[Rfam]
This 96-nucleotide sequence from Ornithinimicrobium cerasi belongs to the Rfam family "Glycine riboswitch aptamer".
The source organism's lineage runs through Bacteria, Bacillati, Actinomycetes, Micrococcales and Ornithinimicrobium.
It scores 62 bits against the family's covariance model.
Pairs were carried over by alignment from the consensus structure.
RNA sequence: CGAUCCCGCGAGGGAGAGACCCCACCCUCCAGGUGGGGCGCCGAAGGGGCAAAUCUCCCCGACAAGCUCUCAGGCGACAAGGAUCUCGCGGGUCAG
Numbered sequence: 001c002g003a004u005c006c007c008g009c010g011a012g013g014g015a016g017a018g019a020c021c022c023c024a025c026c027c028u029c030c031a032g033g034u035g036g037g038g039c040g041c042c043g044a045a046g047g048g049g050c051a052a053a054u055c056u057c058c059c060c061g062a063c064a065a066g067c068u069c070u071c072a073g074g075c076g077a078c079a080a081g082g083a084u085c086u087c088g089c090g091g092g093u094c095a096g
Stems, first nucleotide, its partner, number of pairs: 006091008020038004040075003043071002047069003054061001